[Rfam]
RNA sequence: CCCCGCGCGGUUCGUAACCAUCCCGCGAUAACAAAACUAAGGGAGA
Numbered sequence: 001c002c003c004c005g006c007g008c009g010g011u012u013c014g015u016a017a018c019c020a021u022c023c024c025g026c027g028a029u030a031a032c033a034a035a036a037c038u039a040a041g042g043g044a045g046a
Stems, first nucleotide, its partner, number of pairs: 006027005015039002
About this RNA: Shown here is a 46-nucleotide RNA from Bhargavaea cecembensis, a member of the family "PreQ1 (pre queuosine) riboswitch aptamer". Taxonomically the source falls in Bhargavaea cecembensis (Bacteria, Bacilli, Caryophanaceae, Bhargavaea). On this family, see Connelly et al., Nat Commun 2019: "Synthetic ligands for PreQ(1) riboswitches provide structural and mechanistic insights into targeting RNA tertiary structure". It scores 44 bits against the family's covariance model. The family has 43 seed sequences and 873 matches in Rfam 15.1.